[Rfam]
This 102-nucleotide RNA sequence from Alicyclobacillaceae bacterium I2511 belongs to the Rfam family "Purine riboswitch aptamer". It scores 74 bits against the family's covariance model. For this family Rfam cites "Riboswitches Control Fundamental Biochemical Pathways in Bacillus subtilis and Other Bacteria" (Mandal et al., Cell, 2003). Taxonomically the source falls in Alicyclobacillaceae (Bacteria, Bacillati, Bacillota, Caryophanales).
RNA sequence: UGAUGCGUAGAUUCCGUUCCUCGUAUAUCCUCGGGAAUAUGGCCCGAGAGUCUCUACCCGGACCCCGUAAAGGUCUGGACUACGAGCCACGGUGGCCGGGGU
Numbered sequence: 001u002g003a004u005g006c007g008u009a010g011a012u013u014c015c016g017u018u019c020c021u022c023g024u025a026u027a028u029c030c031u032c033g034g035g036a037a038u039a040u041g042g043c044c045c046g047a048g049a050g051u052c053u054c055u056a057c058c059c060g061g062a063c064c065c066c067g068u069a070a071a072g073g074u075c076u077g078g079a080c081u082a083c084g085a086g087c088c089a090c091g092g093u094g095g096c097c098g099g100g101g102u
Stems, first nucleotide, its partner, number of pairs: 020086006030048006058078007
Dot-bracket structure: ...................((((((....((((((.......)))))).........(((((((.......)))))))..))))))................